[Rfam]
RNA sequence: AUCAGGUCUAGGGUAGCCCCCGAAAAACCGGAUUCCUUCAUCCGGUCUGACCUGUGUCUUUAAUGAAGG
Numbered sequence: 001a002u003c004a005g006g007u008c009u010a011g012g013g014u015a016g017c018c019c020c021c022g023a024a025a026a027a028c029c030g031g032a033u034u035c036c037u038u039c040a041u042c043c044g045g046u047c048u049g050a051c052c053u054g055u056g057u058c059u060u061u062a063a064u065g066a067a068g069g
Base pairs, nucleotide, nucleotide: 003054004053005052006051007050008049011021012020013019027046028045029044030043031042035069036068037067038066039065040064
int-alpA RNA: a 69-nucleotide sequence. Rfam describes the family as follows. Acidobacteria (1 example), Planctomycetes (1 example), Proteobacteria. The sequence is in the family's curated seed alignment. Pairs were carried over by alignment from the consensus structure, which is taken from published work. Rfam 15.1 lists 577 matches to the family in 491 species.